[Rfam]
RNA sequence: GACAUUUAAGGGCAAACUUAUCUAAAGGUAAGGACGCAAAGCCAAGGGCCUAAUUAACAUAAAGUUAUAUGGUAGCCGGUUGCAUUC
Numbered sequence: 001g002a003c004a005u006u007u008a009a010g011g012g013c014a015a016a017c018u019u020a021u022c023u024a025a026a027g028g029u030a031a032g033g034a035c036g037c038a039a040a041g042c043c044a045a046g047g048g049c050c051u052a053a054u055u056a057a058c059a060u061a062a063a064g065u066u067a068u069a070u071g072g073u074a075g076c077c078g079g080u081u082g083c084a085u086u087c
Base pairs, nucleotide, nucleotide: 012037013036017032018031019030020029021028022027040081041080042079043078046077047076048073049072050071055067056066057065058064
This 87-nucleotide RNA from Alkalibaculum sporogenes belongs to the Rfam family "c-di-GMP-I riboswitch aptamer". Its Rfam clan is "c-di-GMP_I riboswitch clan". It scores 72 bits against the family's covariance model. Gene Ontology term of the family: cyclic-di-GMP binding.